Source information:
Rfam assigns this 150-nucleotide RNA sequence from Oryza sativa to the family "MIR2118 microRNA precursor family". Rfam links the family to the GO terms miRNA-mediated post-transcriptional gene silencing and RISC complex. Taxonomically the source falls in Oryza sativa (Eukaryota, Magnoliopsida, Liliopsida, Oryzeae).
[Rfam]
RNA sequence: GGCAGGGGCAAAGGAAGCAUGAGCUUGUGGGAGUUGUAGGAAUGGAUGCGUAGAGAAAGAAAUGAAAUCUGAACCAGAUUUGUGAUUUGAUUCUUUCCUAUGACGUCCAUUCCAAUGAUUUCCAGUCGCUCCUUCCUUGACCCAAACUGC
Numbered sequence: 001g002g003c004a005g006g007g008g009c010a011a012a013g014g015a016a017g018c019a020u021g022a023g024c025u026u027g028u029g030g031g032a033g034u035u036g037u038a039g040g041a042a043u044g045g046a047u048g049c050g051u052a053g054a055g056a057a058a059g060a061a062a063u064g065a066a067a068u069c070u071g072a073a074c075c076a077g078a079u080u081u082g083u084g085a086u087u088u089g090a091u092u093c094u095u096u097c098c099u100a101u102g103a104c105g106u107c108c109a110u111u112c113c114a115a116u117g118a119u120u121u122c123c124a125g126u127c128g129c130u131c132c133u134u135c136c137u138u139g140a141c142c143c144a145a146a147c148u149g150c
Base pairs, nucleotide, nucleotide: 012138013137016134017133021131022130023129028124029123030122031121032120033119034118035117037115039113040112041111042110043109044108045107046106047105049102050101051100053098055097056096057095058094059093060092061091